[Rfam]
A member of the RNA family "U4atac minor spliceosomal RNA" from Gadus morhua, 128 nucleotides long.
RNA sequence: ACUAUCCUUGUUAUGGGGUGAGGAGCUGUUCAAUGGAUGUAAGGUGAGGACAGCCCUGCUAACAACCACAUCGACACUUUUCACAUCACUUGGGAGACUUCCCAGGACCUGGUGCAAUUUUUCGAAAU
Numbered sequence: 001a002c003u004a005u006c007c008u009u010g011u012u013a014u015g016g017g018g019u020g021a022g023g024a025g026c027u028g029u030u031c032a033a034u035g036g037a038u039g040u041a042a043g044g045u046g047a048g049g050a051c052a053g054c055c056c057u058g059c060u061a062a063c064a065a066c067c068a069c070a071u072c073g074a075c076a077c078u079u080u081u082c083a084c085a086u087c088a089c090u091u092g093g094g095a096g097a098c099u100u101c102c103c104a105g106g107a108c109c110u111g112g113u114g115c116a117a118u119u120u121u122u123c124g125a126a127a128u
Base pairs, nucleotide, nucleotide: 006018007017008016009015020059022057023056025054026053027052028051029050030049031048037045038044084114085113086112087111088110089106090105091104092103093102094101

A reference for the family is Lorkovic et al. (2005), "Evolutionary conservation of minor U12-type spliceosome between plants and humans", RNA. Its Rfam clan is "U4 clan". Pairs were carried over by alignment from the consensus structure, which is taken from published work.